[Rfam]
RNA sequence: CCUGCAACAACAUCCUGGUGCUGCCUGAGUCACUUUCACAAACUCCAGCAUCAGUGAUUUUGUUGCGGG
Numbered sequence: 001c002c003u004g005c006a007a008c009a010a011c012a013u014c015c016u017g018g019u020g021c022u023g024c025c026u027g028a029g030u031c032a033c034u035u036u037c038a039c040a041a042a043c044u045c046c047a048g049c050a051u052c053a054g055u056g057a058u059u060u061u062g063u064u065g066c067g068g069g
Stems, first nucleotide, its partner, number of pairs: 006064005012058003015054009
Rfam assigns this 69-nucleotide RNA sequence from Takifugu rubripes to the family "mir-338 microRNA precursor family". On this family, see Meiri et al., Nucleic Acids Res 2010: "Discovery of microRNAs and other small RNAs in solid tumors". It is one of the family's seed sequences.